[Rfam]
RNA sequence: GCCACAUGAAAGACAAGGUAGUGAGACGCAGGUGCGAGAUGAACAUCUCACUACCCAUGUCUUUCAUGCAGAA
Numbered sequence: 001g002c003c004a005c006a007u008g009a010a011a012g013a014c015a016a017g018g019u020a021g022u023g024a025g026a027c028g029c030a031g032g033u034g035c036g037a038g039a040u041g042a043a044c045a046u047c048u049c050a051c052u053a054c055c056c057a058u059g060u061c062u063u064u065c066a067u068g069c070a071g072a073a
Stems, first nucleotide, its partner, number of pairs: 008065008017055002020052007028044001
RNA: mir-71 microRNA precursor family